[Rfam]
RNA sequence: CACCGUGUUAAGGUUUGGUUAAGCUUCAUAUGUGAUAUUUGUGGGUAUCCAGUGAUCUGGAUUCUUACCGAGUGGCUUGGCCACUCCGUUUGACGCCUCCCUGUUUAACUCCUGAGAGCCGCCUUUUGCGGCUCUUUUUUU
Numbered sequence: 001c002a003c004c005g006u007g008u009u010a011a012g013g014u015u016u017g018g019u020u021a022a023g024c025u026u027c028a029u030a031u032g033u034g035a036u037a038u039u040u041g042u043g044g045g046u047a048u049c050c051a052g053u054g055a056u057c058u059g060g061a062u063u064c065u066u067a068c069c070g071a072g073u074g075g076c077u078u079g080g081c082c083a084c085u086c087c088g089u090u091u092g093a094c095g096c097c098u099c100c101c102u103g104u105u106u107a108a109c110u111c112c113u114g115a116g117a118g119c120c121g122c123c124u125u126u127u128g129c130g131g132c133u134c135u136u137u138u139u140u141u
Stems, first nucleotide, its partner, number of pairs: 001043003005014002015037001020035001022033001025030001047062004070086006092105004114136009
Shown here is a 141-nucleotide RNA from Aerobium aerolatum, a member of the family "Alphaproteobacterial sRNA BjrC1505". It scores 70 bits against the family's covariance model. The pairing is the family consensus, mapped onto this sequence. The source organism's lineage runs through Bacteria, Pseudomonadota, Alphaproteobacteria, Hyphomicrobiales and Aerobium aerolatum.